[Rfam]
RNA: Trypanosomatid snoRNA TB9Cs2H1
RNA sequence: GGCUCACUAUGGAGUUGUGUCUUGGCCGAACAUAUUGUGGCCCUGUUAGCACACUCACGUGCGCCGAGA
Numbered sequence: 001g002g003c004u005c006a007c008u009a010u011g012g013a014g015u016u017g018u019g020u021c022u023u024g025g026c027c028g029a030a031c032a033u034a035u036u037g038u039g040g041c042c043c044u045g046u047u048a049g050c051a052c053a054c055u056c057a058c059g060u061g062c063g064c065c066g067a068g069a
Stems, first nucleotide, its partner, number of pairs: 001065003005061003017052004024042004